Rfam assigns this 131-nucleotide sequence from Castor canadensis to the family "Small nucleolar RNA SNORA44". Rfam's curators write: ACA44 is a member of the H/ACA class of snoRNA that guide the sites of modification of uridines to pseudouridines.
[Rfam]
RNA sequence: CAGCAUGUUCCCAAGGGCUGUGGCUUCUUGUGGCCAUGGGAUCUCCAACUGCAUGCAAGAGAAACCUGGAGAGACUUUGACAGCUCAGGUCACCCCAAUAUCUGCAGCUGCCACUCGCCUUUCCUAUAAUG
Numbered sequence: 001c002a003g004c005a006u007g008u009u010c011c012c013a014a015g016g017g018c019u020g021u022g023g024c025u026u027c028u029u030g031u032g033g034c035c036a037u038g039g040g041a042u043c044u045c046c047a048a049c050u051g052c053a054u055g056c057a058a059g060a061g062a063a064a065c066c067u068g069g070a071g072a073g074a075c076u077u078u079g080a081c082a083g084c085u086c087a088g089g090u091c092a093c094c095c096c097a098a099u100a101u102c103u104g105c106a107g108c109u110g111c112c113a114c115u116c117g118c119c120u121u122u123c124c125u126a127u128a129a130u131g
Stems, first nucleotide, its partner, number of pairs: 011039002016035007068124006083111002086104004
Taxonomically the source falls in Castor (Eukaryota, Euarchontoglires, Glires, Castoridae).
On this family, see Huttenhofer et al., EMBO J 2001: "RNomics: an experimental approach that identifies 201 candidates for novel, small, non-messenger RNAs in mouse".
Its family is annotated with nucleolus and RNA processing in the Gene Ontology.